[Rfam]
RNA: mir-790 microRNA precursor family
RNA sequence: ACCUGCUUGGCACUCGCGAACACCGCGAUCUAACUGUAUAAAUCGCGGCGUUAGCUCGUGGCAAACAGGU
Numbered sequence: 001a002c003c004u005g006c007u008u009g010g011c012a013c014u015c016g017c018g019a020a021c022a023c024c025g026c027g028a029u030c031u032a033a034c035u036g037u038a039u040a041a042a043u044c045g046c047g048g049c050g051u052u053a054g055c056u057c058g059u060g061g062c063a064a065a066c067a068g069g070u
Stems, first nucleotide, its partner, number of pairs: 003068003007064003011060003016055002019052003023048006